The family of this 65-nucleotide RNA from Anolis carolinensis is "mir-155 microRNA precursor family". The family's consensus secondary structure was predicted with RNAalifold. The family has 25 seed sequences and 647 matches in Rfam 15.1. Lineage of the source: Eukaryota > Eumetazoa > Craniata > Sarcopterygii > Anolis.

RNA sequence: GCAUUAAUGCUAAUCGUGAUGGGAGUUUUUGUCUCUGGCUGACUCCUACAUGUUGGCAUUGAAAA
Numbered sequence: 001g002c003a004u005u006a007a008u009g010c011u012a013a014u015c016g017u018g019a020u021g022g023g024a025g026u027u028u029u030u031g032u033c034u035c036u037g038g039c040u041g042a043c044u045c046c047u048a049c050a051u052g053u054u055g056g057c058a059u060u061g062a063a064a065a
Stems, first nucleotide, its partner, number of pairs: 004062011020048004025043003